[Rfam]
RNA sequence: GACCUUGCCUCUUGGCAAAACACAAAGCAGAGCCUCAUUUGGUUUGGUAGUCCCGAUAUAUCGGGAUCGAAGAACCAGAGGCGACAUAAGCAAAAAG
Dot-bracket structure: .....((((....)))).......................(((......(..((((....))))...).....))).....................
The record is a 97-nucleotide sequence, which matches "RT-17 RNA" in Rfam. Rfam classes the family as a small RNA. The family's consensus secondary structure is taken from published work. Rfam's curators put it in the seed alignment.